The record is a 315-nucleotide RNA sequence from Bacillus anthracis, which matches "transfer-messenger RNA" in Rfam.
Taxonomically the source falls in Bacillus anthracis (Bacteria, Bacilli, Caryophanales, Bacillus).
The base pairs follow the family's consensus structure, which is taken from published work.
Rfam's curators put it in the seed alignment.
RNA sequence: ACAGGGAUAGUUCGAGCUUAGGUUGCGAGUCGAGGGGAUCGGCCUCGUUAAAACGUCAAAGCCUAUAAUUGGCAAACAAAACAAUCUUUCUUUAGCUGCUUAAUUGCACUAAAGGUUCCUCCCUCCAUCGUCCAUGUGGUAGGGUAAGGGACUCAAACUAAGUGGACUACGCCGGAGUUCGCCGUCUGAGGACAAAGGAAGAGAACAACCAGACUAGCAACUUGGAAGCCUGUCGAUAGGCCGAAGAGUUCGCGAAAUGCUAAUAUAUCGACUACACUCGUAGAAGCUUAAGUGCCGAUAUUUUUGGACGUGGGU
Numbered sequence: 001a002c003a004g005g006g007a008u009a010g011u012u013c014g015a016g017c018u019u020a021g022g023u024u025g026c027g028a029g030u031c032g033a034g035g036g037g038a039u040c041g042g043c044c045u046c047g048u049u050a051a052a053a054c055g056u057c058a059a060a061g062c063c064u065a066u067a068a069u070u071g072g073c074a075a076a077c078a079a080a081a082c083a084a085u086c087u088u089u090c091u092u093u094a095g096c097u098g099c100u101u102a103a104u105u106g107c108a109c110u111a112a113a114g115g116u117u118c119c120u121c122c123c124u125c126c127a128u129c130g131u132c133c134a135u136g137u138g139g140u141a142g143g144g145u146a147a148g149g150g151a152c153u154c155a156a157a158c159u160a161a162g163u164g165g166a167c168u169a170c171g172c173c174g175g176a177g178u179u180c181g182c183c184g185u186c187u188g189a190g191g192a193c194a195a196a197g198g199a200a201g202a203g204a205a206c207a208a209c210c211a212g213a214c215u216a217g218c219a220a221c222u223u224g225g226a227a228g229c230c231u232g233u234c235g236a237u238a239g240g241c242c243g244a245a246g247a248g249u250u251c252g253c254g255a256a257a258u259g260c261u262a263a264u265a266u267a268u269c270g271a272c273u274a275c276a277c278u279c280g281u282a283g284a285a286g287c288u289u290a291a292g293u294g295c296c297g298a299u300a301u302u303u304u305u306g307g308a309c310g311u312g313g314g315u
Stems, first nucleotide, its partner, number of pairs: 003305007011297001014295001016293009026280005031047005037057003091114003095110001097108003115152006121144004125139004130167006172198002177193004184214005217253002219250005228241003232272004238266001